[Rfam]
RNA: MIR2617 microRNA precursor family
Organism: Medicago truncatula
RNA sequence: AUGACGUGUAGCAUACCCGUUUGGUGAAAUACUCUGAUGAUUAUUGUUAUUUAUUUUACUUUUGGGUAACGGGGUGUUACACUAUG
Numbered sequence: 001a002u003g004a005c006g007u008g009u010a011g012c013a014u015a016c017c018c019g020u021u022u023g024g025u026g027a028a029a030u031a032c033u034c035u036g037a038u039g040a041u042u043a044u045u046g047u048u049a050u051u052u053a054u055u056u057u058a059c060u061u062u063u064g065g066g067u068a069a070c071g072g073g074g075u076g077u078u079a080c081a082c083u084a085u086g
Stems, first nucleotide, its partner, number of pairs: 002086002006082009016073006